The record is a 95-nucleotide RNA from Saimiri boliviensis, which matches "Y RNA" in Rfam.
Rfam describes the family as follows. Y RNAs are components of the Ro ribonucleoprotein particle (Ro RNP), in association with Ro60 and La proteins.
The organism belongs to Saimiri boliviensis, within Eukaryota.
Rfam classes the family as a non-coding RNA gene.
Rfam 15.1 lists 26,986 matches to the family in 650 species.
The family's consensus secondary structure is taken from published work.
RNA sequence: GGCUGGUUCGAAGAUAGGCAUCUCAGUUAUUCACCGCCAGUUACAGAUCGAGCUACUCUUUCCCCCUUCCCACUGCUAUACUUGACUCAUCUUUU
Numbered sequence: 001g002g003c004u005g006g007u008u009c010g011a012a013g014a015u016a017g018g019c020a021u022c023u024c025a026g027u028u029a030u031u032c033a034c035c036g037c038c039a040g041u042u043a044c045a046g047a048u049c050g051a052g053c054u055a056c057u058c059u060u061u062c063c064c065c066c067u068u069c070c071c072a073c074u075g076c077u078a079u080a081c082u083u084g085a086c087u088c089a090u091c092u093u094u095u
Base pairs, nucleotide, nucleotide: 001091002090005087006086007085008084010083011082014079015078016074017073018070025057026056027055030052